Overview:
This 104-nucleotide RNA from Izhakiella capsodis belongs to the Rfam family "t44 RNA".

[Rfam]
RNA sequence: CUCAUUAUGUGUCUAAAACACACAUGUAUCGACACGUGCACCGGGGUGCCUUACCGUCUGAAAGGGCGCGAAGGUCGGUUGCAUGGGAUACAUGGAGGCUCAAC
Numbered sequence: 001c002u003c004a005u006u007a008u009g010u011g012u013c014u015a016a017a018a019c020a021c022a023c024a025u026g027u028a029u030c031g032a033c034a035c036g037u038g039c040a041c042c043g044g045g046g047u048g049c050c051u052u053a054c055c056g057u058c059u060g061a062a063a064g065g066g067c068g069c070g071a072a073g074g075u076c077g078g079u080u081g082c083a084u085g086g087g088a089u090a091c092a093u094g095g096a097g098g099c100u101c102a103a104c
Base pairs, nucleotide, nucleotide: 023094024093025092026091027090028089029088030087035085036084037083038082039081040079041078042077043076048075049074050073051072052071
Rfam describes the family as follows. This family consists of a number of bacterial RNA genes of between 135 and 170 bases in length. The t44 gene has been identified in several species of enteric bacteria but homologs have also been identified in Pseudomonas and Coxiella species. The t44 gene is found between the map and rpsB genes in all species in the full alignment apart from Shigella flexneri. The function of this RNA is unknown.
The organism belongs to Izhakiella, within Bacteria.